Background: The record is a 60-nucleotide RNA from Galactobacter caseinivorans, which matches "msiK RNA" in Rfam. The base pairs follow the family's consensus structure, which is taken from published work.
RNA sequence: UGAUCACACCAUUCACUACGGAUCGUCGGGCACGUACCUGCCCGUGGAAGGUUGAUGCCC
Numbered sequence: 001u002g003a004u005c006a007c008a009c010c011a012u013u014c015a016c017u018a019c020g021g022a023u024c025g026u027c028g029g030g031c032a033c034g035u036a037c038c039u040g041c042c043c044g045u046g047g048a049a050g051g052u053u054g055a056u057g058c059c060c
Stems, first nucleotide, its partner, number of pairs: 009051002012048004027044006
By type it is a cis-regulatory element.
NCBI's taxonomy places the organism under Bacteria, Actinomycetota, Actinomycetes, Micrococcaceae, Galactobacter.